[Rfam]
RNA: SAM (S-adenosyl methionine) riboswitch aptamer
RNA sequence: CUUCAUGAGACGCCGUCGCCAAGCUCCGACUGGACGGCGCGCCAACCCCAGGCUCGUGGGUGGCUCGGAUGACGAAGCGACCGGCACCGACCGGUGCCGGUAAGAGCGCCUC
Numbered sequence: 001c002u003u004c005a006u007g008a009g010a011c012g013c014c015g016u017c018g019c020c021a022a023g024c025u026c027c028g029a030c031u032g033g034a035c036g037g038c039g040c041g042c043c044a045a046c047c048c049c050a051g052g053c054u055c056g057u058g059g060g061u062g063g064c065u066c067g068g069a070u071g072a073c074g075a076a077g078c079g080a081c082c083g084g085c086a087c088c089g090a091c092c093g094g095u096g097c098c099g100g101u102a103a104g105a106g107c108g109c110c111u112c
Base pairs, nucleotide, nucleotide: 001077002076003075004074009040012038013037014036015035016034017033022031023030041064042063043062046060047059048058080101081100082099083098084097085096086095087094088093
Dot-bracket structure: ((((....(..((((((....((......)).)))))).)(((..(((.........))).))).........))))..(((((((((....)))))))))...........